[Rfam]
RNA sequence: GCCACUCUGGAAAGAGAUCCGGGAUGCCACGUCCUCGGAUCCGCCGACGGUGAAAGCCGCGCCACGCGCGGUGAAACUCUCAGGUCCAUGACAGAGGGGGAGUU
Numbered sequence: 001g002c003c004a005c006u007c008u009g010g011a012a013a014g015a016g017a018u019c020c021g022g023g024a025u026g027c028c029a030c031g032u033c034c035u036c037g038g039a040u041c042c043g044c045c046g047a048c049g050g051u052g053a054a055a056g057c058c059g060c061g062c063c064a065c066g067c068g069c070g071g072u073g074a075a076a077c078u079c080u081c082a083g084g085u086c087c088a089u090g091a092c093a094g095a096g097g098g099g100g101a102g103u104u
Stems, first nucleotide, its partner, number of pairs: 002099002005096005016041008043085003046081002050079001052077001056072005
RNA: Glycine riboswitch aptamer